RNA: sRNA-Xcc1
Organism: Salipiger sp. IMCC34102
RNA sequence: GUCGGGGUGGUGGCGUCAUACAAGACCCUCGCGGGAAAAACGUCACGCUUGUCUCUCGGCAAGUUUCUAGCACCCCGGCGCCAGUCC
Numbered sequence: 001g002u003c004g005g006g007g008u009g010g011u012g013g014c015g016u017c018a019u020a021c022a023a024g025a026c027c028c029u030c031g032c033g034g035g036a037a038a039a040a041c042g043u044c045a046c047g048c049u050u051g052u053c054u055c056u057c058g059g060c061a062a063g064u065u066u067c068u069a070g071c072a073c074c075c076c077g078g079c080g081c082c083a084g085u086c087c
Base pairs, nucleotide, nucleotide: 001079002078003077004076005075006074007073008072009071011045012044013043014042016040026035027034028033047064048063049062050061051060052059